[Rfam]
RNA sequence: UUGCCGGUGAAAGUCCGGUACCGGUAGCCGCCAAGGAGCCGGUUAGCUUCAGGGCUGGUUGUGUCAGAAAUGAUACGGUCAGAGCGCCCUGAAUAUGCAAGACCUCAGACCGUAACAUAA
Numbered sequence: 001u002u003g004c005c006g007g008u009g010a011a012a013g014u015c016c017g018g019u020a021c022c023g024g025u026a027g028c029c030g031c032c033a034a035g036g037a038g039c040c041g042g043u044u045a046g047c048u049u050c051a052g053g054g055c056u057g058g059u060u061g062u063g064u065c066a067g068a069a070a071u072g073a074u075a076c077g078g079u080c081a082g083a084g085c086g087c088c089c090u091g092a093a094u095a096u097g098c099a100a101g102a103c104c105u106c107a108g109a110c111c112g113u114a115a116c117a118u119a120a
Stems, first nucleotide, its partner, number of pairs: 020043005051090005056081006065072002097113002
The family of this 120-nucleotide RNA from Thermoanaerobacteraceae bacterium SP2 is "Group II catalytic intron D1-D4-4".
Group II introns are found in rRNA, tRNA and mRNA of organelles in fungi, plants and protists, and also in mRNA in bacteria.
Taxonomically the source falls in Thermoanaerobacteraceae (Bacteria, Bacillati, Bacillota, Thermoanaerobacterales).